[Rfam]
Small nucleolar RNA Z39: a 63-nucleotide sequence from Chionis minor. Gene Ontology terms of the family: nucleolus and RNA processing. A reference for the family is Chen et al. (2003), "The high diversity of snoRNAs in plants: identification and comparative study of 120 snoRNA genes from Oryza sativa", Nucleic Acids Res. By type it is a C/D-box small nucleolar RNA. Taxonomically the source falls in Chionis (Eukaryota, Deuterostomia, Sarcopterygii, Neoaves). The family has 5 seed sequences and 935 matches in Rfam 15.1.
RNA sequence: GUACAGAUGAUGAGUAUUGCAGUAUGAAGUGUAAUAAUGAUACUGUAAACGCUUUCUGAUGUA
Numbered sequence: 001g002u003a004c005a006g007a008u009g010a011u012g013a014g015u016a017u018u019g020c021a022g023u024a025u026g027a028a029g030u031g032u033a034a035u036a037a038u039g040a041u042a043c044u045g046u047a048a049a050c051g052c053u054u055u056c057u058g059a060u061g062u063a
Stems, first nucleotide, its partner, number of pairs: 002063004012055001013053003020045006